[Rfam]
RNA sequence: AGAGAGGAGUGAAUAAGGUUGUUCAUAUAAAUUGCAAAUUUAUACAUUUAGGGUUCGAUUCCCUCUUCUCUC
Numbered sequence: 001a002g003a004g005a006g007g008a009g010u011g012a013a014u015a016a017g018g019u020u021g022u023u024c025a026u027a028u029a030a031a032u033u034g035c036a037a038a039u040u041u042a043u044a045c046a047u048u049u050a051g052g053g054u055u056c057g058a059u060u061c062c063c064u065c066u067u068c069u070c071u072c
Stems, first nucleotide, its partner, number of pairs: 001071007010025004027043005050064004